[Rfam]
RNA sequence: UCCCUAGUGGCUCAGAGGGUAGAGCAUCUGUCUGCAAUACAGGAGACCUGGGUUCAAUCCCUGGGUUGGGAA
Numbered sequence: 001u002c003c004c005u006a007g008u009g010g011c012u013c014a015g016a017g018g019g020u021a022g023a024g025c026a027u028c029u030g031u032c033u034g035c036a037a038u039a040c041a042g043g044a045g046a047c048c049u050g051g052g053u054u055c056a057a058u059c060c061c062u063g064g065g066u067u068g069g070g071a072a
Stems, first nucleotide, its partner, number of pairs: 001071004006066001010025004027043005048064005